[Rfam]
RNA sequence: UGACCUGAACUCAGUCGUGAGCACCCGCUGAACUUAAGCAUAUCAGUAAGCGGAGGAAAAGAAACUAACAAGGAUUCCCAUAGUAACGGCGAGUGAACUGGGAGAUGUCCAGCGCUAAAUCGUGCCAGGCCUCUCGGUUCAUGAAGUGUAGCGUAAAGGCCGCAAGCUUUGACCUACCGUCUCGUCCAGGUCCCCUUGACUGGGGCUACCAAAGAAGGUGCAAGUCCUGUAUUUCGAGAAGGCUGGUUAAACUUUGUGUGUCUCAGAGUCGGGUUGUUUGGGAUCACAGCCCAAAGUAGGUGGUAAACUUCAUCUAAGACAGAAUAUCGCCACGAAUCCGAUAGCAAACAAGUACUGUGAAGGAAAGUUGCAAAGCACUUUGAAGAGAGAGUUAAAGAGGACGUGAAACCGGUGGGGUGGAAA
Numbered sequence: 001u002g003a004c005c006u007g008a009a010c011u012c013a014g015u016c017g018u019g020a021g022c023a024c025c026c027g028c029u030g031a032a033c034u035u036a037a038g039c040a041u042a043u044c045a046g047u048a049a050g051c052g053g054a055g056g057a058a059a060a061g062a063a064a065c066u067a068a069c070a071a072g073g074a075u076u077c078c079c080a081u082a083g084u085a086a087c088g089g090c091g092a093g094u095g096a097a098c099u100g101g102g103a104g105a106u107g108u109c110c111a112g113c114g115c116u117a118a119a120u121c122g123u124g125c126c127a128g129g130c131c132u133c134u135c136g137g138u139u140c141a142u143g144a145a146g147u148g149u150a151g152c153g154u155a156a157a158g159g160c161c162g163c164a165a166g167c168u169u170u171g172a173c174c175u176a177c178c179g180u181c182u183c184g185u186c187c188a189g190g191u192c193c194c195c196u197u198g199a200c201u202g203g204g205g206c207u208a209c210c211a212a213a214g215a216a217g218g219u220g221c222a223a224g225u226c227c228u229g230u231a232u233u234u235c236g237a238g239a240a241g242g243c244u245g246g247u248u249a250a251a252c253u254u255u256g257u258g259u260g261u262c263u264c265a266g267a268g269u270c271g272g273g274u275u276g277u278u279u280g281g282g283a284u285c286a287c288a289g290c291c292c293a294a295a296g297u298a299g300g301u302g303g304u305a306a307a308c309u310u311c312a313u314c315u316a317a318g319a320c321a322g323a324a325u326a327u328c329g330c331c332a333c334g335a336a337u338c339c340g341a342u343a344g345c346a347a348a349c350a351a352g353u354a355c356u357g358u359g360a361a362g363g364a365a366a367g368u369u370g371c372a373a374a375g376c377a378c379u380u381u382g383a384a385g386a387g388a389g390a391g392u393u394a395a396a397g398a399g400g401a402c403g404u405g406a407a408a409c410c411g412g413u414g415g416g417g418u419g420g421a422a423a
Stems, first nucleotide, its partner, number of pairs: 024055001025053005035042002065072002076103005086094002106321004113153005119147001120144005158262002161260004167256001171248004177242001180239005190206001192205004210214001217227002271292007298315005355362002378389004

Shown here is a 423-nucleotide part of an RNA from Meloidogyne artiellia, a member of the family "Eukaryotic large subunit ribosomal RNA". Lineage of the source: Eukaryota > Protostomia > Tylenchina > Meloidogynidae > Meloidogyne. Pairs were carried over by alignment from the consensus structure, which is taken from published work.